[Rfam]
RNA sequence: GAGUGAAGGGCGCAGGGUGGAUGCCUCGGCACCGGAGCCGAUGAAGGGCGUGGCAAGCUGCGAAAAGCCACGGGGAGCCGCAAGCAGGCGUAGAUCCGUGGAUUCCCGAAUGGGGCAACCUGCCGGGUGGAAGACCUGGCAUCGCAUGCUGAAUCAAGUAGGCAUGCGAGGGGAGACCGGGGGAACUGAAACAUCUUAGUACCCCGAGGAGAAGAAAUCAAAAUGAGAUUCCCCAAGUAGCGGCGAGCGAAAGGGGAGGAGCCCAAACCAUCGCAAGUUUUUAGCUUGCGGUGGGGUUGUAGGACAGGAGCGCGAAGCCACUUGAGGCGCUUAGCCGAAUGGUCUGGGAAGGCCAGCCGUAGAGGGUGACAGCCCCGUAGGCGAAAAGCGCAAGUCAAGUGGUGCUUCUGAUCCUGAGUAGCACCAGUGUCGUGGAAGCUGGUGUGAAGCAGGGGGGACCACCCUCCAAGGCUAAAUACUACCGGUGACCGAUAGUGGACAAAGUACCGUGAGGGAAAGGUGAAAAGAACCCCGGGAGGGGAGUGAAAUAGAGCCUGAAACCCUGUGCCUACAAG
Numbered sequence: 001g002a003g004u005g006a007a008g009g010g011c012g013c014a015g016g017g018u019g020g021a022u023g024c025c026u027c028g029g030c031a032c033c034g035g036a037g038c039c040g041a042u043g044a045a046g047g048g049c050g051u052g053g054c055a056a057g058c059u060g061c062g063a064a065a066a067g068c069c070a071c072g073g074g075g076a077g078c079c080g081c082a083a084g085c086a087g088g089c090g091u092a093g094a095u096c097c098g099u100g101g102a103u104u105c106c107c108g109a110a111u112g113g114g115g116c117a118a119c120c121u122g123c124c125g126g127g128u129g130g131a132a133g134a135c136c137u138g139g140c141a142u143c144g145c146a147u148g149c150u151g152a153a154u155c156a157a158g159u160a161g162g163c164a165u166g167c168g169a170g171g172g173g174a175g176a177c178c179g180g181g182g183g184a185a186c187u188g189a190a191a192c193a194u195c196u197u198a199g200u201a202c203c204c205c206g207a208g209g210a211g212a213a214g215a216a217a218u219c220a221a222a223a224u225g226a227g228a229u230u231c232c233c234c235a236a237g238u239a240g241c242g243g244c245g246a247g248c249g250a251a252a253g254g255g256g257a258g259g260a261g262c263c264c265a266a267a268c269c270a271u272c273g274c275a276a277g278u279u280u281u282u283a284g285c286u287u288g289c290g291g292u293g294g295g296g297u298u299g300u301a302g303g304a305c306a307g308g309a310g311c312g313c314g315a316a317g318c319c320a321c322u323u324g325a326g327g328c329g330c331u332u333a334g335c336c337g338a339a340u341g342g343u344c345u346g347g348g349a350a351g352g353c354c355a356g357c358c359g360u361a362g363a364g365g366g367u368g369a370c371a372g373c374c375c376c377g378u379a380g381g382c383g384a385a386a387a388g389c390g391c392a393a394g395u396c397a398a399g400u401g402g403u404g405c406u407u408c409u410g411a412u413c414c415u416g417a418g419u420a421g422c423a424c425c426a427g428u429g430u431c432g433u434g435g436a437a438g439c440u441g442g443u444g445u446g447a448a449g450c451a452g453g454g455g456g457g458a459c460c461a462c463c464c465u466c467c468a469a470g471g472c473u474a475a476a477u478a479c480u481a482c483c484g485g486u487g488a489c490c491g492a493u494a495g496u497g498g499a500c501a502a503a504g505u506a507c508c509g510u511g512a513g514g515g516a517a518a519g520g521u522g523a524a525a526a527g528a529a530c531c532c533c534g535g536g537a538g539g540g541g542a543g544u545g546a547a548a549u550a551g552a553g554c555c556u557g558a559a560a561c562c563c564u565g566u567g568c569c570u571a572c573a574a575g
Stems, first nucleotide, its partner, number of pairs: 008570010023555001024520002028490002030487006036480002038172002046107003049062003068101007077089003112121003122140007142169009177208001178206005188195002218226002229476001230257005240248002260473004268294009301415003306409005318402007327391006334382003340355005358362001364376003421445008452467005507514002530541004
The record is a 575-nucleotide part of an RNA from Caldicellulosiruptor saccharolyticus, which matches "Bacterial large subunit ribosomal RNA" in Rfam. Lineage of the source: Bacteria > Bacillati > Caldicellulosiruptoraceae > Caldicellulosiruptor > Caldicellulosiruptor saccharolyticus. Rfam's curators put it in the seed alignment.